A member of the RNA family "SAH (S-adenosyl-L-homocysteine) riboswitch aptamer" from Amycolatopsis saalfeldensis, 81 nucleotides long. The family's consensus secondary structure is taken from published work. A search with the family's covariance model found it, with a score of 37 bits.
[Rfam]
RNA sequence: CGGGCCGAGAGGCGCUGCGACGGGGUCAUCGACUCCGCCACGCUCGGCCCGCGAUCACCGAGAGAAGGGCGCCUCCUGCGA
Numbered sequence: 001c002g003g004g005c006c007g008a009g010a011g012g013c014g015c016u017g018c019g020a021c022g023g024g025g026u027c028a029u030c031g032a033c034u035c036c037g038c039c040a041c042g043c044u045c046g047g048c049c050c051g052c053g054a055u056c057a058c059c060g061a062g063a064g065a066a067g068g069g070c071g072c073c074u075c076c077u078g079c080g081a
Base pairs, nucleotide, nucleotide: 002050003049004048005047006046007045008044021037022036023035024034025033026032
The family has 52 seed sequences and 1,354 matches in Rfam 15.1.